[Rfam]
RNA sequence: UCGCGGGCGACUGCAAAUCUGGAGGAAGCCGAAGGCAAAGCGCUGGCCUGACGAACAGGAAGCGGAUACGAGGCGGCGUAGCGGGGCGAGGUGGUCCAUAUCAUUGAAGCCCUGUACUUGCACGGAAAGCUACGACGUAUAUCCGACAGGCAUGGGACUGCGUGAAGCUGGGGGG
Dot-bracket structure: (.((((....)))).)............((....(....((((.((((((............(((((.....(((.((((((.((((..((((........))))...))))................)))))).)))..))))).)))))......).)))).....)....))
The family of this 175-nucleotide sequence from Burkholderia sp. lig30 is "Group II catalytic intron D1-D4-3".